[Rfam]
RNA sequence: GGCUGGUCCAAAGGUAGUGAGUUAUCUCAAUCGAUUGUUCACAGUCAGUUUCCUUGUUCUGUUCUUUCCCCAGUUCUCACCACUGCACUUGACUAGUCUUAA
Numbered sequence: 001g002g003c004u005g006g007u008c009c010a011a012a013g014g015u016a017g018u019g020a021g022u023u024a025u026c027u028c029a030a031u032c033g034a035u036u037g038u039u040c041a042c043a044g045u046c047a048g049u050u051u052c053c054u055u056g057u058u059c060u061g062u063u064c065u066u067u068c069c070c071c072a073g074u075u076c077u078c079a080c081c082a083c084u085g086c087a088c089u090u091g092a093c094u095a096g097u098c099u100u101a102a
Stems, first nucleotide, its partner, number of pairs: 001098008010090002014086002017080005033064002037060001
The record is a 102-nucleotide RNA from Microcebus murinus, which matches "Y RNA" in Rfam. The source organism's lineage runs through Eukaryota, Craniata, Sarcopterygii, Dipnotetrapodomorpha and Microcebus. A search with the family's covariance model found it, with a score of 66 bits. Rfam classes the family as a non-coding RNA gene. Rfam's curators write: Y RNAs are components of the Ro ribonucleoprotein particle (Ro RNP), in association with Ro60 and La proteins. The Y RNAs and Ro60 and La proteins are well conserved, but the function of the Ro RNP is not known. In humans the RNA component can be one of four small RNAs -- hY1, hY3, hY4 and hY5. These small RNAs are predicted to fold into a conserved secondary structure containing three stem structures. The largest of the four, hY1, contains an additional hairpin. This family includes a significant number of annotated pseudogenes and the model is expected to discriminate poorly between real and Y RNA related pseudogenes.